The record is an 85-nucleotide RNA from Pipistrellus kuhlii, which matches "mir-9261 microRNA precursor family" in Rfam. The match comes from Rfam's covariance-model search (93 bits). Its family is annotated with miRNA-mediated post-transcriptional gene silencing and RISC complex in the Gene Ontology.
RNA sequence: AACAAUUUGUCCCGCGUCCCGCGGCAUUUUAAAAAAGAAUCUUUGACUUUUUUAAAACGCCGCGGGACGCGGGACAAAUUGUUAA
Dot-bracket structure: (((((((((((((((((((((((((.(((((((((.............))))))))).)))))))))))))))))))))))))..